[Rfam]
RNA sequence: UACAUACUGGAUCUUUGGUCAAGUUCUUCUUUAUGUGCUCUGAUCUGACUCUUUUUCGACUUGAGGAGACUGUCGUGAUGUAGACGUAAACCAAUCCUGUAAUUGGAAACGAAAGCCCACUUUGACUCCUCUUCUGGCUUUUCCAGGUCGAUGCAUCAGAGAACUGGCGGGGAUUCGGUGUUACC
Numbered sequence: 001u002a003c004a005u006a007c008u009g010g011a012u013c014u015u016u017g018g019u020c021a022a023g024u025u026c027u028u029c030u031u032u033a034u035g036u037g038c039u040c041u042g043a044u045c046u047g048a049c050u051c052u053u054u055u056u057c058g059a060c061u062u063g064a065g066g067a068g069a070c071u072g073u074c075g076u077g078a079u080g081u082a083g084a085c086g087u088a089a090a091c092c093a094a095u096c097c098u099g100u101a102a103u104u105g106g107a108a109a110c111g112a113a114a115g116c117c118c119a120c121u122u123u124g125a126c127u128c129c130u131c132u133u134c135u136g137g138c139u140u141u142u143c144c145a146g147g148u149c150g151a152u153g154c155a156u157c158a159g160a161g162a163a164c165u166g167g168c169g170g171g172g173a174u175u176c177g178g179u180g181u182u183a184c185c
Stems, first nucleotide, its partner, number of pairs: 004181012018168002036155003041150006063131003067127002070124001072122001075120003080116002086110002091106005